[Rfam]
Shown here is a 99-nucleotide sequence from Aotus nancymaae, a member of the family "Vault RNA". The source organism's lineage runs through Eukaryota, Metazoa, Gnathostomata, Mammalia and Aotus. About the family: This family of RNAs are found as part of the enigmatic vault ribonucleoprotein complex. The complex consists of a major vault protein (MVP), two minor vault proteins (VPARP and TEP1), and several small untranslated RNA molecules. It has been suggested that the vault complex is involved in drug resistance. It is annotated as a non-coding RNA gene. A search with the family's covariance model found it, with a score of 52 bits.
RNA sequence: UGGCCGGCUUUAGCUCAGCGGUUACUUCAACAAUGCUUUCUAUGGUGGAAAACAACCAAUCUCUGCUGUCGAGACCCAAGGGUGUCAUCCGGCCCUUAA
Numbered sequence: 001u002g003g004c005c006g007g008c009u010u011u012a013g014c015u016c017a018g019c020g021g022u023u024a025c026u027u028c029a030a031c032a033a034u035g036c037u038u039u040c041u042a043u044g045g046u047g048g049a050a051a052a053c054a055a056c057c058a059a060u061c062u063c064u065g066c067u068g069u070c071g072a073g074a075c076c077c078a079a080g081g082g083u084g085u086c087a088u089c090c091g092g093c094c095c096u097u098a099a
Base pairs, nucleotide, nucleotide: 002094003093004092005091006090007089013083014082015081016080020077021076026073027072028071030069031068032067